[Rfam]
RNA sequence: GCUUUCAACAUCCCCGUUCCGGUAAAGGCGUUGUCAGUUGCGGGAAACCGCAAAUGGCAGGCGCGUCCGGAGCUGAAAGC
Dot-bracket structure: (((((((........(((((((.....(((((((((..................)))))).)))..))))))))))))))
This 80-nucleotide sequence belongs to the Rfam family "nadA riboswitch". It is annotated as a small RNA. It is one of the family's seed sequences.